[Rfam]
RNA: Guanidine-II riboswitch aptamer (mini-ykkC)
RNA sequence: UCUCAGGGACGACCCUGGGAAUUAUUUAACUAGCGGGGACGACCCCA
Numbered sequence: 001u002c003u004c005a006g007g008g009a010c011g012a013c014c015c016u017g018g019g020a021a022u023u024a025u026u027u028a029a030c031u032a033g034c035g036g037g038g039a040c041g042a043c044c045c046c047a
Stems, first nucleotide, its partner, number of pairs: 001020008035046004